[Rfam]
RNA: Selenocysteine insertion sequence 1
Organism: Salvelinus namaycush
RNA sequence: GUGUUAUUAAUGAAGACCUGAUUGUAAACUCGGCAACGAGGGGAGCAGGUUCGAUAUCCAAACAC
Numbered sequence: 001g002u003g004u005u006a007u008u009a010a011u012g013a014a015g016a017c018c019u020g021a022u023u024g025u026a027a028a029c030u031c032g033g034c035a036a037c038g039a040g041g042g043g044a045g046c047a048g049g050u051u052c053g054a055u056a057u058c059c060a061a062a063c064a065c
Stems, first nucleotide, its partner, number of pairs: 001065005015051006022044002030039003